The record is a 167-nucleotide RNA sequence from Fictibacillus macauensis, which matches "glmS glucosamine-6-phosphate activated ribozyme aptamer" in Rfam. The match comes from Rfam's covariance-model search (127 bits).
RNA sequence: GCAAUACCACAAGCGCCUGAACUAUUUUCGACCGGAAUGAAAAUAGUUGACGAGGAAGAGGAUCAUCGAGAUUUCGGCGGAUGCCUCUCGGAUGACGUCACAUCCGUAAGCUUUUAUACAAACCAGGUAAGGUGACUUCCUGUACAAACAUAAAAGUAGUGACGAAU
Dot-bracket structure: ...................((((((((.(.........).))))))))........(((((....((((....))))......)))))((((((......))))))...(((((((.......((((.(((....)))))))........)))))))..........
By type it is a riboswitch. Rfam's curators write: This entry contains a glucosamine-6-phosphate activated ribozyme that is found in the mRNA for GlmS. GlmS is an enzyme that uses fructose-6-phosphate and glutamine to generate glucosamine-6-phosphate. Pairs were carried over by alignment from the consensus structure, which is taken from published work. For this family Rfam cites "Backbone and nucleobase contacts to glucosamine-6-phosphate in the glmS ribozyme" (Jansen et al., Nat Struct Mol Biol, 2006).